[Rfam]
RNA: Bacterial large subunit ribosomal RNA, nucleotides 1325 to 1597
RNA sequence: GAGAAAGGGUGUGAGAGACACCCUCGCCGAAAGUCCAAGGGUUCCUGCGUAAAGCUAAUCUGCGCAGGGUUAGUCGACCCCUAAGGCGAGGCCGAAAGGCGUAGUCGAUGGGAAUCAGGUGAAUAUUCCUGAACCAGUGGGUGGUGACGGAUGGCUUGUGUUGUAGGUCCUUACUGGAUUGGACCUGCUUCGACGCUGUUCCAGGAAAUAGCCCCCACAUCAGAUCGUACCCGAAACCGACACAGGUGGACUGGUAGAGUAUACCAAGGCGUU
Numbered sequence: 001g002a003g004a005a006a007g008g009g010u011g012u013g014a015g016a017g018a019c020a021c022c023c024u025c026g027c028c029g030a031a032a033g034u035c036c037a038a039g040g041g042u043u044c045c046u047g048c049g050u051a052a053a054g055c056u057a058a059u060c061u062g063c064g065c066a067g068g069g070u071u072a073g074u075c076g077a078c079c080c081c082u083a084a085g086g087c088g089a090g091g092c093c094g095a096a097a098g099g100c101g102u103a104g105u106c107g108a109u110g111g112g113a114a115u116c117a118g119g120u121g122a123a124u125a126u127u128c129c130u131g132a133a134c135c136a137g138u139g140g141g142u143g144g145u146g147a148c149g150g151a152u153g154g155c156u157u158g159u160g161u162u163g164u165a166g167g168u169c170c171u172u173a174c175u176g177g178a179u180u181g182g183a184c185c186u187g188c189u190u191c192g193a194c195g196c197u198g199u200u201c202c203a204g205g206a207a208a209u210a211g212c213c214c215c216c217a218c219a220u221c222a223g224a225u226c227g228u229a230c231c232c233g234a235a236a237c238c239g240a241c242a243c244a245g246g247u248g249g250a251c252u253g254g255u256a257g258a259g260u261a262u263a264c265c266a267a268g269g270c271g272u273u
Stems, first nucleotide, its partner, number of pairs: 006024006025271004033251004039231002044068006053061002075227003080111002085106003089102001091100003115132005135223001137218001140216002143213003149201004160194004165186006237246002253265004
Dot-bracket structure: .....((((((.......))))))((((....((((..((...((((((...((.....)).))))))......(((..((...(((.(.(((....))).).)))...))...(((((........)))))..(.(..((.(((...((((.......((((.((((((..........))))))....))))...)))).........))).)).)....).)))..)).....((......)).)))).((((.....))))..))))..